Notes: Bacterial RNase P class A: a 411-nucleotide RNA from Mycobacterium adipatum. A search with the family's covariance model found it, with a score of 295 bits.
RNA sequence: CGAGUUGGCCGGGCGGCCGCGGAUCCCGGGUUCACCCCGGGACUCGAGGAAAGUCCGGACUUCACAGAGCAGGGUGAUUGUUAACGGCAAUCCGGGGAAACUCGCGGGAAAGUGCCACAGAAAGUAGACCGCCACCUGUGCCCUUCGGGGCGUAGGGGGUAAGGGUGAAACGGUGCGGUAAGAGCGCACCAGCAUCCCGGGUGACCGGGAUGGCUAGGUAAACCCCACCCGAAGCAAGGCCAAGAAGGCCGCAACCUGGUUGUGGCUGCGCACGCGUUCGAGGGCUGCUCGCCCGAGCGUGCGGGUAGGCCGCUUGAGGCACCCGGCGACGGUGUGUCCAGAUGGAUGGUCGCCGCCUCACCGGAUACCUCCGGUGAGGAACAGAAUCCGGCUUACAGGCCAGCUCGUCCG
Numbered sequence: 001c002g003a004g005u006u007g008g009c010c011g012g013g014c015g016g017c018c019g020c021g022g023a024u025c026c027c028g029g030g031u032u033c034a035c036c037c038c039g040g041g042a043c044u045c046g047a048g049g050a051a052a053g054u055c056c057g058g059a060c061u062u063c064a065c066a067g068a069g070c071a072g073g074g075u076g077a078u079u080g081u082u083a084a085c086g087g088c089a090a091u092c093c094g095g096g097g098a099a100a101c102u103c104g105c106g107g108g109a110a111a112g113u114g115c116c117a118c119a120g121a122a123a124g125u126a127g128a129c130c131g132c133c134a135c136c137u138g139u140g141c142c143c144u145u146c147g148g149g150g151c152g153u154a155g156g157g158g159g160u161a162a163g164g165g166u167g168a169a170a171c172g173g174u175g176c177g178g179u180a181a182g183a184g185c186g187c188a189c190c191a192g193c194a195u196c197c198c199g200g201g202u203g204a205c206c207g208g209g210a211u212g213g214c215u216a217g218g219u220a221a222a223c224c225c226c227a228c229c230c231g232a233a234g235c236a237a238g239g240c241c242a243a244g245a246a247g248g249c250c251g252c253a254a255c256c257u258g259g260u261u262g263u264g265g266c267u268g269c270g271c272a273c274g275c276g277u278u279c280g281a282g283g284g285c286u287g288c289u290c291g292c293c294c295g296a297g298c299g300u301g302c303g304g305g306u307a308g309g310c311c312g313c314u315u316g317a318g319g320c321a322c323c324c325g326g327c328g329a330c331g332g333u334g335u336g337u338c339c340a341g342a343u344g345g346a347u348g349g350u351c352g353c354c355g356c357c358u359c360a361c362c363g364g365a366u367a368c369c370u371c372c373g374g375u376g377a378g379g380a381a382c383a384g385a386a387u388c389c390g391g392c393u394u395a396c397a398g399g400c401c402a403g404c405u406c407g408u409c410c411g
Stems, first nucleotide, its partner, number of pairs: 001407010011396001012354007020046003024042005051394003055391005060234004067290004072230005077091005092106001093104004107225002112223002114219003129164002131160003135156009172190006192214001193212008238311004282294004318338005323332003